[Rfam]
RNA: Enterococcus sRNA 64
RNA sequence: UAAAGCACUCGCUUCCUUUCUGGUUGGGUUUGGUCACAGGGAUGAGUGCUUUUUGUGU
Numbered sequence: 001u002a003a004a005g006c007a008c009u010c011g012c013u014u015c016c017u018u019u020c021u022g023g024u025u026g027g028g029u030u031u032g033g034u035c036a037c038a039g040g041g042a043u044g045a046g047u048g049c050u051u052u053u054u055g056u057g058u
Stems, first nucleotide, its partner, number of pairs: 002052010013042005022035005